[Rfam]
RNA sequence: GGUCACAAGUCUGAGGCCAAAGCAAAUGCACUUGCAGCGUGGCCUGUCAGAUUCCAACAAAUCUGCAAAUUCUGCU
Numbered sequence: 001g002g003u004c005a006c007a008a009g010u011c012u013g014a015g016g017c018c019a020a021a022g023c024a025a026a027u028g029c030a031c032u033u034g035c036a037g038c039g040u041g042g043c044c045u046g047u048c049a050g051a052u053u054c055c056a057a058c059a060a061a062u063c064u065g066c067a068a069a070u071u072c073u074g075c076u
Stems, first nucleotide, its partner, number of pairs: 015044004021076004026071001028040002048065006
RNA: Mammalian CPEB3 ribozyme
Organism: Crocodylus porosus